[Rfam]
RNA: eL15-Euryarchaeota ribosomal protein leader
RNA sequence: CCCGAUUGUUCGGGACGACAUGUGGGAAUACGUCAUUGACGUUCCCGAAUCACAAG
Numbered sequence: 001c002c003c004g005a006u007u008g009u010u011c012g013g014g015a016c017g018a019c020a021u022g023u024g025g026g027a028a029u030a031c032g033u034c035a036u037u038g039a040c041g042u043u044c045c046c047g048a049a050u051c052a053c054a055a056g
Stems, first nucleotide, its partner, number of pairs: 001014005017051002024046006